The record is a 110-nucleotide sequence, which matches "Glycine riboswitch aptamer" in Rfam.
A search with the family's covariance model found it, with a score of 41 bits.

[Rfam]
RNA sequence: GCCGCUCUGGAAAGCGACGCAUACGCGUCCGCCGACGGUGAAAGCCGCCGCAUCCGACGCUGUGACGGAUGCCGCGAGCAAGCUCUCAGGCCGAUGACAGAGGGGGAGUU
Numbered sequence: 001g002c003c004g005c006u007c008u009g010g011a012a013a014g015c016g017a018c019g020c021a022u023a024c025g026c027g028u029c030c031g032c033c034g035a036c037g038g039u040g041a042a043a044g045c046c047g048c049c050g051c052a053u054c055c056g057a058c059g060c061u062g063u064g065a066c067g068g069a070u071g072c073c074g075c076g077a078g079c080a081a082g083c084u085c086u087c088a089g090g091c092c093g094a095u096g097a098c099a100g101a102g103g104g105g106g107a108g109u110u
Stems, first nucleotide, its partner, number of pairs: 002105002005102005016029004031091003034087002038085001040083001044079002